[Rfam]
RNA sequence: UGCCUCGUUAUUCAGCAGUUGGACACAGCUCAUGGUGUGUCUGGGAUGGAACAACGUGGCUAGAGGAACAACAGGUUGUGCUUUCCUCACUGUAAGGCUGGUUGCAGUGGUGACAAUGAGACCUGUAACAGGC
Numbered sequence: 001u002g003c004c005u006c007g008u009u010a011u012u013c014a015g016c017a018g019u020u021g022g023a024c025a026c027a028g029c030u031c032a033u034g035g036u037g038u039g040u041c042u043g044g045g046a047u048g049g050a051a052c053a054a055c056g057u058g059g060c061u062a063g064a065g066g067a068a069c070a071a072c073a074g075g076u077u078g079u080g081c082u083u084u085c086c087u088c089a090c091u092g093u094a095a096g097g098c099u100g101g102u103u104g105c106a107g108u109g110g111u112g113a114c115a116a117u118g119a120g121a122c123c124u125g126u127a128a129c130a131g132g133c
Stems, first nucleotide, its partner, number of pairs: 002060003006056003020043007071126005085112001087110004

Shown here is a 133-nucleotide sequence from Eudromia elegans, a member of the family "Small nucleolar RNA SNORA1". NCBI's taxonomy places the organism under Eukaryota, Deuterostomia, Sauropsida, Coelurosauria, Eudromia. It scores 91 bits against the family's covariance model. Rfam's curators write: ACA1 is a member of the H/ACA class of snoRNA that guide the sites of modification of uridines to pseudouridines. The family has 29 seed sequences and 1,282 matches in Rfam 15.1. Rfam classes the family as an H/ACA-box small nucleolar RNA. The family's consensus secondary structure was predicted with PFOLD. Rfam links the family to the GO terms RNA processing and nucleolus.